[Rfam]
RNA: c-di-AMP riboswitch aptamer (ydaO/yuaA leader)
RNA sequence: AAAAAUCCUAAGCCGAAUUCUGUGAAAACAGAUACGGGGGAUGCAAUUUUUUGUGGGGUGAAGCAACUGUGACGACAGUUGCCGGGAUCUCUUCCGUCCCGAACCCGUCAGCUAACCUCGGAGGCAACAAGGAGGAGGAUU
Numbered sequence: 001a002a003a004a005a006u007c008c009u010a011a012g013c014c015g016a017a018u019u020c021u022g023u024g025a026a027a028a029c030a031g032a033u034a035c036g037g038g039g040g041a042u043g044c045a046a047u048u049u050u051u052u053g054u055g056g057g058g059u060g061a062a063g064c065a066a067c068u069g070u071g072a073c074g075a076c077a078g079u080u081g082c083c084g085g086g087a088u089c090u091c092u093u094c095c096g097u098c099c100c101g102a103a104c105c106c107g108u109c110a111g112c113u114a115a116c117c118u119c120g121g122a123g124g125c126a127a128c129a130a131g132g133a134g135g136a137g138g139a140u141u
Base pairs, nucleotide, nucleotide: 012125013124014123019032020031021030022029023028035120036119037118038117039116044055045054056106057105058104064081065080066079067078084100085099086098087097